c-di-GMP-I riboswitch aptamer: an 86-nucleotide RNA sequence from Bacillus sp. HNG.
Its family is annotated with cyclic-di-GMP binding in the Gene Ontology.
NCBI's taxonomy places the organism under Bacteria, Bacillati, Bacillota, Bacilli, Bacillus.
The family's consensus secondary structure is taken from published work.
A reference for the family is Weinberg et al. (2007), "Identification of 22 candidate structured RNAs in bacteria using the CMfinder comparative genomics pipeline", Nucleic Acids Res.
GEMM was predicted in a large-scale screen for bacterial structured RNA regulatory elements.
[Rfam]
RNA sequence: CGUACGAAAAGGCAAAAUCAUUGAAAGAUGAUGACGCAAAACUAGAGGGGCUACGGUCUUUUGGACUAUGCUAGCCAGUUGCCGAA
Number, nucleotide and partner (000 for none) at each position: 001c000002g000003u000004a000005c000006g000007a000008a000009a000010a000011g000012g037013c036014a000015a000016a000017a032018u031019c030020a029021u028022u027023g000024a000025a000026a000027g022028a021029u020030g019031a018032u017033g000034a000035c000036g013037c012038a000039a000040a080041a079042c078043u077044a000045g000046a000047g076048g075049g072050g071051c070052u000053a000054c000055g000056g066057u065058c064059u063060u000061u000062u000063g059064g058065a057066c056067u000068a000069u000070g051071c050072u049073a000074g000075c048076c047077a043078g042079u041080u040081g000082c000083c000084g000085a000086a000